Record summary: The record is a 75-nucleotide sequence from Actinomadura soli, which matches "ASpks TB sRNA" in Rfam. The family's consensus secondary structure is taken from published work. It scores 80 bits against the family's covariance model.
RNA sequence: CUUCAGCGACCCCAGCCACAGGGGACGGUCCGCGUCCCGGUCCUGCCCGUAGGCGGCGAGCAGGGCCUGCGCCUC
Numbered sequence: 001c002u003u004c005a006g007c008g009a010c011c012c013c014a015g016c017c018a019c020a021g022g023g024g025a026c027g028g029u030c031c032g033c034g035u036c037c038c039g040g041u042c043c044u045g046c047c048c049g050u051a052g053g054c055g056g057c058g059a060g061c062a063g064g065g066c067c068u069g070c071g072c073c074u075c
Stems, first nucleotide, its partner, number of pairs: 016024002031071003038065001043060002047056003